RNA sequence: ACAGAAUGAGAGAUAAGGAACUCUCUUUCUAAAUAUAUUUUCAAUCCAUAAGGAGGGAUUUGA
Numbered sequence: 001a002c003a004g005a006a007u008g009a010g011a012g013a014u015a016a017g018g019a020a021c022u023c024u025c026u027u028u029c030u031a032a033a034u035a036u037a038u039u040u041u042c043a044a045u046c047c048a049u050a051a052g053g054a055g056g057g058a059u060u061u062g063a
Stems, first nucleotide, its partner, number of pairs: 003030003006026001008025005041063003044059004
Dot-bracket structure: ..((((.(((((........)))))).)))..........(((((((........)))).)))
RNA: cow-rumen-4 RNA